[Rfam]
RNA: Antisense RNA which regulates isiA expression
Organism: Hevea brasiliensis
RNA sequence: GUUGGUAAUUUUUCUAACAUCUUCCAUAACCCCCUCCUGAGCCCAGGUAUCAUAUACACUGCCAAAAUAAAGAGCCAUGAAUACUAGAAGAAAAGCAUUUAUACCUAGCAAGAUUAAUUGAAUACCUAAAUGACAUCCCUUACUCAUCAAUCUU
Numbered sequence: 001g002u003u004g005g006u007a008a009u010u011u012u013u014c015u016a017a018c019a020u021c022u023u024c025c026a027u028a029a030c031c032c033c034c035u036c037c038u039g040a041g042c043c044c045a046g047g048u049a050u051c052a053u054a055u056a057c058a059c060u061g062c063c064a065a066a067a068u069a070a071a072g073a074g075c076c077a078u079g080a081a082u083a084c085u086a087g088a089a090g091a092a093a094a095g096c097a098u099u100u101a102u103a104c105c106u107a108g109c110a111a112g113a114u115u116a117a118u119u120g121a122a123u124a125c126c127u128a129a130a131u132g133a134c135a136u137c138c139c140u141u142a143c144u145c146a147u148c149a150a151u152c153u154u
Base pairs, nucleotide, nucleotide: 117151118150119149120148121147127142128141129140